This 113-nucleotide RNA from Polypterus senegalus belongs to the Rfam family "U5 spliceosomal RNA". From the family's description: U5 RNA is a component of both types of known spliceosome. The precise function of this molecule is unknown, though it is known that the 5' loop is required for splice site selection and p220 binding, and that both the 3' stem-loop and the Sm site are important for Sm protein binding and cap methylation. The organism belongs to Polypterus, within Eukaryota. The family's RNA type in Rfam is spliceosomal small nuclear RNA. It scores 88 bits against the family's covariance model. Gene Ontology terms of the family: U5 snRNP and spliceosomal tri-snRNP complex assembly.
[Rfam]
RNA sequence: AUGCUCUGGGUUCCUUCAUCCCGAAUAAAUCUUUCGCCUUUUACUAAAGAUUUCCGUGGAGAGGACCGUUAAAGAGUCUCAAAGAAUUUUUGCACAGCCUGUUUCACAGGCUC
Numbered sequence: 001a002u003g004c005u006c007u008g009g010g011u012u013c014c015u016u017c018a019u020c021c022c023g024a025a026u027a028a029a030u031c032u033u034u035c036g037c038c039u040u041u042u043a044c045u046a047a048a049g050a051u052u053u054c055c056g057u058g059g060a061g062a063g064g065a066c067c068g069u070u071a072a073a074g075a076g077u078c079u080c081a082a083a084g085a086a087u088u089u090u091u092g093c094a095c096a097g098c099c100u101g102u103u104u105c106a107c108a109g110g111c112u113c
Stems, first nucleotide, its partner, number of pairs: 003077004009067005014061005027053008096112006